[Rfam]
RNA sequence: UAAGGAGCAAUAAACUCUUUCGUGUUCUAUCAAGAGGGGUUAUUGCUCCUUUAU
Numbered sequence: 001u002a003a004g005g006a007g008c009a010a011u012a013a014a015c016u017c018u019u020u021c022g023u024g025u026u027c028u029a030u031c032a033a034g035a036g037g038g039g040u041u042a043u044u045g046c047u048c049c050u051u052u053a054u
Base pairs, nucleotide, nucleotide: 002051003050004049005048006047007046008045009044010043011042012041017038019036020035021034023032024031
RNA: Plastid-psbA-4 3UTR RNA